[Rfam]
RNA sequence: GACACCACCGGACGGAACCGGUCCCGAGGGUUGGGGAGCCCGACGACGGAACGGACCUCCGAGGCCGGCAACAGGUCUUAGGGAGCCUGGAGCCGCCGCUUCCGGUGAAGGAG
Numbered sequence: 001g002a003c004a005c006c007a008c009c010g011g012a013c014g015g016a017a018c019c020g021g022u023c024c025c026g027a028g029g030g031u032u033g034g035g036g037a038g039c040c041c042g043a044c045g046a047c048g049g050a051a052c053g054g055a056c057c058u059c060c061g062a063g064g065c066c067g068g069c070a071a072c073a074g075g076u077c078u079u080a081g082g083g084a085g086c087c088u089g090g091a092g093c094c095g096c097c098g099c100u101u102c103c104g105g106u107g108a109a110g111g112a113g
Stems, first nucleotide, its partner, number of pairs: 006107007013061004018054003022050003028041005063097003067094003072089005
The family of this 113-nucleotide sequence from Actinomyces slackii is "Actinomyces-1 RNA". A search with the family's covariance model found it, with a score of 92 bits. Taxonomically the source falls in Actinomyces (Bacteria, Bacillati, Actinomycetota, Actinomycetes). By type it is a small RNA. The base pairs follow the family's consensus structure, which is taken from published work.